[Rfam]
RNA sequence: GUUACCGCCGAACGGUGGCGACCGUGAGGUACUGGGGAGUACCACUGACCGGCCACCACUGAGUCUGGGCCACAGCCAAGGGAAUGUGCUCGGACGUUUCGGUGAAGGAG
Numbered sequence: 001g002u003u004a005c006c007g008c009c010g011a012a013c014g015g016u017g018g019c020g021a022c023c024g025u026g027a028g029g030u031a032c033u034g035g036g037g038a039g040u041a042c043c044a045c046u047g048a049c050c051g052g053c054c055a056c057c058a059c060u061g062a063g064u065c066u067g068g069g070c071c072a073c074a075g076c077c078a079a080g081g082g083a084a085u086g087u088g089c090u091c092g093g094a095c096g097u098u099u100c101g102g103u104g105a106a107g108g109a110g
Stems, first nucleotide, its partner, number of pairs: 006104007013061004018056001020054001022052003028043002031040003063095006071088004
Shown here is a 110-nucleotide RNA sequence, a member of the family "Actinomyces-1 RNA". By type it is a small RNA. The family's consensus secondary structure is taken from published work.